The record is a 187-nucleotide RNA, which matches "Manganese Mn2+ riboswitch aptamer (yybP-ykoY)" in Rfam.
RNA sequence: UUGUUAUAAUUUAAAUGUCACUAGGGAGUAGCUUCUCUUCUCUACAGAAGAUGGCUUACAUCAACAUACUUGAGCUUAGGCUUAUGGUGUAAGCGGUUUAAAUACUUGGCAAGACUUUUGACUACAAACACUUACUUAGGCUGUGGGUGCGUUGUAGUCAUUUGUUUAUGUCACAGCCUAGAGGACU
Numbered sequence: 001u002u003g004u005u006a007u008a009a010u011u012u013a014a015a016u017g018u019c020a021c022u023a024g025g026g027a028g029u030a031g032c033u034u035c036u037c038u039u040c041u042c043u044a045c046a047g048a049a050g051a052u053g054g055c056u057u058a059c060a061u062c063a064a065c066a067u068a069c070u071u072g073a074g075c076u077u078a079g080g081c082u083u084a085u086g087g088u089g090u091a092a093g094c095g096g097u098u099u100a101a102a103u104a105c106u107u108g109g110c111a112a113g114a115c116u117u118u119u120g121a122c123u124a125c126a127a128a129c130a131c132u133u134a135c136u137u138a139g140g141c142u143g144u145g146g147g148u149g150c151g152u153u154g155u156a157g158u159c160a161u162u163u164g165u166u167u168a169u170g171u172c173a174c175a176g177c178c179u180a181g182a183g184g185a186c187u
Stems, first nucleotide, its partner, number of pairs: 006052002054094010071084005095187005

The pairing is the family consensus, mapped onto this sequence.